[Rfam]
RNA: mir-87 microRNA precursor family
Organism: Owenia fusiformis
RNA sequence: GCCCAGCCAGCCUGGAAUUUGGCUCAACCUUGAUAUUGAUAGGUGAGCAAAGUUUCAGGUGUGUUGGUUG
Number, nucleotide and partner (000 for none) at each position: 001g000002c000003c067004c066005a065006g064007c063008c000009a000010g060011c059012c058013u057014g056015g055016a000017a053018u052019u051020u050021g000022g000023c047024u046025c045026a044027a000028c043029c042030u041031u000032g000033a000034u000035a000036u000037u000038g000039a000040u000041a030042g029043g028044u026045g025046a024047g023048c000049a000050a020051a019052g018053u017054u000055u015056c014057a013058g012059g011060u010061g000062u000063g007064u006065u005066g004067g003068u000069u000070g000